The record is a 102-nucleotide RNA from Myotis lucifugus, which matches "Small nucleolar RNA SNORD124" in Rfam.

RNA sequence: UGAAUCCAAGGAAGGAAUGAUGUUCCAAUUGAGACUCAAGAAAAGGAUUCUGAGCCUCAGAGCUUUGAAGGAGACACUGGCUCUGACCUUCCCUGAGAUGAU
Dot-bracket structure: .........((((((.......................................................................))))))..........